[Rfam]
RNA sequence: AUGACGUGUAGCAUGCCCGUUUGUGGGAUUACUCUGAUGUUUAUAUGCUAUUUUAUUGCUUUUGGGUAACGGGGUGUUACACUAUA
Numbered sequence: 001a002u003g004a005c006g007u008g009u010a011g012c013a014u015g016c017c018c019g020u021u022u023g024u025g026g027g028a029u030u031a032c033u034c035u036g037a038u039g040u041u042u043a044u045a046u047g048c049u050a051u052u053u054u055a056u057u058g059c060u061u062u063u064g065g066g067u068a069a070c071g072g073g074g075u076g077u078u079a080c081a082c083u084a085u086a
Base pairs, nucleotide, nucleotide: 002086003085006082007081008080009079010078011077012076013075014074016073017072018071019070020069021068